This 358-nucleotide part of an RNA from Candidatus Acidianus copahuensis belongs to the Rfam family "Archaeal small subunit ribosomal RNA". The base pairs follow the family's consensus structure, which is taken from published work. Rfam 15.1 lists 709 matches to the family in 491 species. The literature on the family includes a 2001 paper in Science by Yusupov et al., "Crystal structure of the ribosome at 5.5 A resolution". Taxonomically the source falls in Acidianus (Archaea, Thermoproteota, Thermoprotei, Sulfolobaceae).
RNA sequence: GGCUUAAAGCGCCCGUAGCCGGCCCUACAAGUCACUGUUUAAAGAUCCGGGCUCAACCCGGGGAAGGGCAGUGAUACUGUGGGGCUAGGGGGCGAGAGAGGUCGGAGGUAUUCCUGGAGUAGGGGCGAAAUCCUUAGAUCCCGGGAAGACCACCAGUGGCGAAAGCGUCCGGCCAGAGCGCGCCCGACGGUGAGGGGCGAAAGCCGGGGUAGCAAAAGGGAUUAGAUACCCCUGUAGUCCCGGCUGUAAACUAUGCAGGCUAGGUGUAGCGUAGGCUUUGCGCCUACGCUGUGCCGCAGAGAAAUUGGUAAGCCUGCCGCCUGGGGAGUACGACCGCAAGGUUGAAACUUAAAGGAAU
Number, nucleotide and partner (000 for none) at each position: 001g321002g320003c319004u000005u000006a000007a000008a000009g318010c000011g198012c197013c196014c195015g000016u192017a000018g191019c190020c189021g000022g085023c084024c083025c082026u081027a080028c079029a000030a078031g077032u074033c073034a072035c071036u070037g069038u068039u067040u066041a000042a000043a000044g000045a000046u062047c061048c060049g059050g058051g057052c000053u000054c000055a000056a000057c051058c050059c049060g048061g047062g046063g000064a000065a000066g040067g039068g038069c037070a036071g035072u034073g033074a032075u000076a000077c031078u030079g028080u027081g026082g025083g024084g023085c022086u000087a000088g000089g185090g184091g183092g181093c180094g179095a000096g000097a000098g000099a000100g174101g173102u172103c171104g170105g169106a168107g151108g150109u000110a000111u147112u146113c145114c144115u143116g142117g141118a000119g000120u000121a000122g133123g132124g131125g000126c000127g000128a000129a000130a000131u124132c123133c122134u000135u000136a000137g000138a000139u000140c000141c117142c116143g115144g114145g113146a112147a111148g000149a000150c108151c107152a000153c000154c000155a000156g000157u000158g000159g166160c165161g000162a000163a000164a000165g160166c159167g000168u106169c105170c104171g103172g102173c101174c100175a000176g000177a000178g000179c094180g093181c092182g000183c091184c090185c089186g000187a000188c000189g020190g019191u018192g016193a000194g000195g014196g013197g012198c011199g000200a000201a000202a000203g244204c243205c242206g241207g240208g239209g000210u000211a000212g238213c237214a000215a000216a000217a233218g232219g231220g230221a000222u000223u000224a000225g000226a000227u000228a000229c000230c220231c219232c218233u217234g000235u000236a000237g213238u212239c208240c207241c206242g205243g204244c203245u000246g000247u000248a000249a000250a000251c000252u000253a000254u000255g317256c316257a315258g314259g313260c312261u000262a000263g295264g294265u293266g292267u291268a290269g289270c288271g287272u286273a285274g284275g283276c282277u000278u000279u000280g000281c000282g276283c275284c274285u273286a272287c271288g270289c269290u268291g267292u266293g265294c264295c263296g000297c000298a000299g306300a305301g000302a000303a000304a000305u300306u299307g000308g000309u000310a000311a000312g260313c259314c258315u257316g256317c255318c009319g003320c002321c001322u000323g350324g349325g348326g000327a000328g000329u000330a000331c000332g343333a342334c341335c340336g000337c000338a000339a000340g335341g334342u333343u332344g000345a000346a000347a000348c325349u324350u323351a000352a000353a000354g000355g000356a000357a000358u000